Source information: This 127-nucleotide RNA sequence from Caenorhabditis elegans belongs to the Rfam family "Caenorhabditis snoRNA ceN110".
[Rfam]
RNA sequence: AUGCAGAUGUCCAUUACGAAAAGGCUCUUUACCUUUUGACGUUUAGUUAAAUUUGCGAAAUAAAAUUGAUGUCUCGAAGACAUGUGCUUCAUAUUUUGAUGCUCAUGUUCAAGAUCAGCAAACAAAC
Numbered sequence: 001a002u003g004c005a006g007a008u009g010u011c012c013a014u015u016a017c018g019a020a021a022a023g024g025c026u027c028u029u030u031a032c033c034u035u036u037u038g039a040c041g042u043u044u045a046g047u048u049a050a051a052u053u054u055g056c057g058a059a060a061u062a063a064a065a066u067u068g069a070u071g072u073c074u075c076g077a078a079g080a081c082a083u084g085u086g087c088u089u090c091a092u093a094u095u096u097u098g099a100u101g102c103u104c105a106u107g108u109u110c111a112a113g114a115u116c117a118g119c120a121a122a123c124a125a126a127c
Base pairs, nucleotide, nucleotide: 003056004055005054006053007052008051016042017041018040020037021036022035066121067120068119071115072114073113074112076110077109080108081107082106083105084104086102087101
By type it is an H/ACA-box small nucleolar RNA. The family's consensus secondary structure was predicted with RNAalifold.